[Rfam]
RNA sequence: CGCGGGUCGUCAGGAGAGCGCUUCCCCGUGAAGCCGCCGAAGGCGCAGGCGAACAGCCGAACGCUCAGGCACCCAGGACUGAUGGCCGCCC
Dot-bracket structure: .....((((((((......((((.......)))).(((((..(((..((.......))...))))).)))........)))))))).....

The family of this 91-nucleotide sequence from Ramlibacter sp. Leaf400 is "Glycine riboswitch aptamer". The base pairs follow the family's consensus structure. The organism belongs to Ramlibacter, within Bacteria.